[Rfam]
RNase MRP: a 244-nucleotide RNA from Photinus pyralis.
NCBI's taxonomy places the organism under Eukaryota, Altocrustacea, Hexapoda, Lampyridae, Photinus.
The match comes from Rfam's covariance-model search (93 bits).
RNA sequence: CAGUUCUCCUAAGCCUAACCUUCGGGGCUACAUACAGAAACCUUGUGUUUCAUUUCCCUGAGGAAGGUCCCCGGAUCCGUGAUAGAAAGUAUCGCAAAUUGAGUAUGUCAAUUACAUUGCACAUUGCCAUGUAGGAUGGGAGUUAUCGAUCUGUGUAUGGCAUGCGUGUGAUAAUGGUCAUAGCAAAGAAAUGGUUAGGGUCACCUAUCGGUGAUAACACAACGGGGCCCACUAUGGGAGAAAU
Numbered sequence: 001c002a003g004u005u006c007u008c009c010u011a012a013g014c015c016u017a018a019c020c021u022u023c024g025g026g027g028c029u030a031c032a033u034a035c036a037g038a039a040a041c042c043u044u045g046u047g048u049u050u051c052a053u054u055u056c057c058c059u060g061a062g063g064a065a066g067g068u069c070c071c072c073g074g075a076u077c078c079g080u081g082a083u084a085g086a087a088a089g090u091a092u093c094g095c096a097a098a099u100u101g102a103g104u105a106u107g108u109c110a111a112u113u114a115c116a117u118u119g120c121a122c123a124u125u126g127c128c129a130u131g132u133a134g135g136a137u138g139g140g141a142g143u144u145a146u147c148g149a150u151c152u153g154u155g156u157a158u159g160g161c162a163u164g165c166g167u168g169u170g171a172u173a174a175u176g177g178u179c180a181u182a183g184c185a186a187a188g189a190a191a192u193g194g195u196u197a198g199g200g201u202c203a204c205c206u207a208u209c210g211g212u213g214a215u216a217a218c219a220c221a222a223c224g225g226g227g228c229c230c231a232c233u234a235u236g237g238g239a240g241a242a243a244u
Base pairs, nucleotide, nucleotide: 002244004242005241006240007239008238009237010236011235014199015198016197017196018195019194022061023060024059025058026057027056037051038050039049040048041047066229067228069227070226071225072224081093082092083091084090097113098112099111100110101109102108115170116169117168124153126151136146137145138144139143201214202213203212204211205210